[Rfam]
RNA sequence: GAGACACCCCUAUGGAGCAGGACUUGUUUCAGGGGGGCUUUGGUGCUCACUGAGUCUGCCCGCUUAGUGUGUCACU
Number, nucleotide and partner (000 for none) at each position: 001g075002a000003g073004a072005c071006a070007c069008c000009c067010c000011u000012a064013u000014g000015g061016a000017g059018c058019a057020g000021g056022a055023c054024u000025u000026g000027u000028u000029u053030c052031a051032g050033g000034g048035g047036g046037g044038c043039u000040u000041u000042g000043g038044u037045g000046c036047u035048c034049a000050c032051u031052g030053a029054g023055u022056c021057u019058g018059c017060c000061c015062g000063c000064u012065u000066a000067g009068u000069g007070u006071g005072u004073c003074a000075c001076u000
Shown here is a 76-nucleotide RNA sequence from Myotis davidii, a member of the family "mir-9229 microRNA precursor family". The source organism's lineage runs through Eukaryota, Deuterostomia, Teleostomi, Tetrapoda and Myotis.